[Rfam]
RNA sequence: AUCAUCUAGGGAUCUUGUUAAAAUGCAGAUUCAGAUUCAGUAGACUUGGUUUCGGACUAAGAUUCUGCAUUUCUGGCAAGUGCCAGGUGAUGCUUA
Numbered sequence: 001a002u003c004a005u006c007u008a009g010g011g012a013u014c015u016u017g018u019u020a021a022a023a024u025g026c027a028g029a030u031u032c033a034g035a036u037u038c039a040g041u042a043g044a045c046u047u048g049g050u051u052u053c054g055g056a057c058u059a060a061g062a063u064u065c066u067g068c069a070u071u072u073c074u075g076g077c078a079a080g081u082g083c084c085a086g087g088u089g090a091u092g093c094u095u096a
Stems, first nucleotide, its partner, number of pairs: 003089003009083001014080007021072003025068005031062002
About this RNA:
This 96-nucleotide sequence from Diceros bicornis belongs to the Rfam family "mir-544 microRNA precursor family". Pairs were carried over by alignment from the consensus structure, which was predicted with RNAalifold. The family has 16 seed sequences and 10,750 matches in Rfam 15.1.